[Rfam]
Plastid-rps12 3UTR RNA: a 104-nucleotide RNA sequence from Cicer arietinum. Plastid rpl20 is a non-coding RNA (ncRNA) recognised in plastids. It scores 79 bits against the family's covariance model. By type it is a cis-regulatory element.

Nucleotides: 104
Base pairs, nucleotide, nucleotide: 009023010022059094061092062091063085064084066082067081068080069079070078071077
Number, partner (000 for none) and nucleotide at each position: 001000g002000g003000u004000u005000u006000u007000g008000a009023u010022u011000g012000a013000u014000g015000c016000a017000a018000a019000c020000c021000g022010a023009a024000u025000c026000a027000c028000c029000u030000u031000a032000a033000u034000u035000u036000g037000c038000a039000a040000u041000u042000u043000a044000a045000g046000a047000u048000g049000a050000a051000a052000a053000a054000g055000a056000c057000u058000u059094u060000c061092c062091u063085a064084u065000u066082g067081g068080u069079a070078a071077c072000a073000a074000a075000u076000a077071g078070u079069u080068a081067u082066c083000c084064a085063u086000u087000a088000a089000a090000c091062g092061g093000a094059a095000a096000a097000a098000a099000a100000a101000u102000u103000a104000c